[Rfam]
RNA sequence: GUGAACGCCCAGGUGGCCUCCCCAUCCACCAGGGCCUCGUCGCCGAAGUACGCGCCGUCGGCGAGCACCCCCAGCUCCGCCUCGUCGCCAUAGGGUCCCGUGCCCAGCUUCUGCACCCGGCCGUGGGCCAGCAGAUAGACCUCGUCCGCCGCGUCCCCCGCCGUGGCCAGCGACUCGCCCGCCGCGAACUCGCGCUGCUCGCAGCGGCGCGCCAGCUCGGCGAGGACCUCCUCGUCGUCGUACUCGCGCAGCGCGGGCAGCUCGCCCAGCUCGGCGGGGAUGACCGCGACCCGGUCGGCGGUCUGCACAAACGUCACCCGCCCGUCGCCCACCGCGUAGCUGAGGCGGCGGUUCACCCGGUACGUGCCACCCUGCACCUGGACCCACGGCAGCAUCCGCAGCAGCCACCGCGAGGUGAUCUCCUGCAUCUGCGGUGCCGACUUGGUGGUGGUCGCCAGGUUCCGGGCGGCAUCUGUUCCCAGACUCUGCUGAGGGGGCUG
Numbered sequence: 001g002u003g004a005a006c007g008c009c010c011a012g013g014u015g016g017c018c019u020c021c022c023c024a025u026c027c028a029c030c031a032g033g034g035c036c037u038c039g040u041c042g043c044c045g046a047a048g049u050a051c052g053c054g055c056c057g058u059c060g061g062c063g064a065g066c067a068c069c070c071c072c073a074g075c076u077c078c079g080c081c082u083c084g085u086c087g088c089c090a091u092a093g094g095g096u097c098c099c100g101u102g103c104c105c106a107g108c109u110u111c112u113g114c115a116c117c118c119g120g121c122c123g124u125g126g127g128c129c130a131g132c133a134g135a136u137a138g139a140c141c142u143c144g145u146c147c148g149c150c151g152c153g154u155c156c157c158c159c160g161c162c163g164u165g166g167c168c169a170g171c172g173a174c175u176c177g178c179c180c181g182c183c184g185c186g187a188a189c190u191c192g193c194g195c196u197g198c199u200c201g202c203a204g205c206g207g208c209g210c211g212c213c214a215g216c217u218c219g220g221c222g223a224g225g226a227c228c229u230c231c232u233c234g235u236c237g238u239c240g241u242a243c244u245c246g247c248g249c250a251g252c253g254c255g256g257g258c259a260g261c262u263c264g265c266c267c268a269g270c271u272c273g274g275c276g277g278g279g280a281u282g283a284c285c286g287c288g289a290c291c292c293g294g295u296c297g298g299c300g301g302u303c304u305g306c307a308c309a310a311a312c313g314u315c316a317c318c319c320g321c322c323c324g325u326c327g328c329c330c331a332c333c334g335c336g337u338a339g340c341u342g343a344g345g346c347g348g349c350g351g352u353u354c355a356c357c358c359g360g361u362a363c364g365u366g367c368c369a370c371c372c373u374g375c376a377c378c379u380g381g382a383c384c385c386a387c388g389g390c391a392g393c394a395u396c397c398g399c400a401g402c403a404g405c406c407a408c409c410g411c412g413a414g415g416u417g418a419u420c421u422c423c424u425g426c427a428u429c430u431g432c433g434g435u436g437c438c439g440a441c442u443u444g445g446u447g448g449u450g451g452u453c454g455c456c457a458g459g460u461u462c463c464g465g466g467c468g469g470c471a472u473c474u475g476u477u478c479c480c481a482g483a484c485u486c487u488g489c490u491g492a493g494g495g496g497g498c499u500g
Stems, first nucleotide, its partner, number of pairs: 001383002005379001010374001012322002015319002019316001022313001025310001032304005039299004043294003048227002051224001053222005060104003069095001071094002074091001079088002111215003116211001121206001124203001126200002129197003134191001137190002143186002148183001150181002153178002155172001160167002229289002234284006243277002247273002250271003253265003323336003345373001347371002350368002354366003385425002388422002391419001393417003397412003401409001431470002434467001437464001439462002441459006474497001476495001478493001480491003

A member of the RNA family "Saccharopolyspora sRNA 350" from Streptomyces corynorhini, 500 nucleotides long. The family's RNA type in Rfam is antisense RNA. Its family is annotated with regulation of secondary metabolite biosynthetic process in the Gene Ontology. The family's consensus secondary structure was predicted with RNAfold.